This 165-nucleotide sequence from Streptococcus pneumoniae belongs to the Rfam family "Group II catalytic intron D1-D4-3".
Group II introns are found in rRNA, tRNA and mRNA of organelles in fungi, plants and protists, and also in mRNA in bacteria.
On this family, see Bonen and Vogel, Trends Genet 2001: "The ins and outs of group II introns".
The base pairs follow the family's consensus structure.
Rfam links the family to the GO term Group II intron splicing.
Taxonomically the source falls in Streptococcus pneumoniae (Bacteria, Bacillati, Lactobacillales, Streptococcus).
RNA sequence: AAUAUCGUGAGGUAGGGGGGAUAGGAAGGAAUUAGCGAAAUCAAGGUUCUACAAACAGAAUCGUGACUUGAAGCCAUAUAUAGCGGAUGAGGAACUCUAAAAUCCAAAUAGGUGUCGUAACCUAUAUACGUAAAUUACGAGAGUAAACUAGGAAAGAUGUACGGC
Numbered sequence: 001a002a003u004a005u006c007g008u009g010a011g012g013u014a015g016g017g018g019g020g021a022u023a024g025g026a027a028g029g030a031a032u033u034a035g036c037g038a039a040a041u042c043a044a045g046g047u048u049c050u051a052c053a054a055a056c057a058g059a060a061u062c063g064u065g066a067c068u069u070g071a072a073g074c075c076a077u078a079u080a081u082a083g084c085g086g087a088u089g090a091g092g093a094a095c096u097c098u099a100a101a102a103u104c105c106a107a108a109u110a111g112g113u114g115u116c117g118u119a120a121c122c123u124a125u126a127u128a129c130g131u132a133a134a135u136u137a138c139g140a141g142a143g144u145a146a147a148c149u150a151g152g153a154a155a156g157a158u159g160u161a162c163g164g165c
Stems, first nucleotide, its partner, number of pairs: 003014004028165001032161001035158001036156001041150001044149002046144005062139005073131002078127006085105004091098002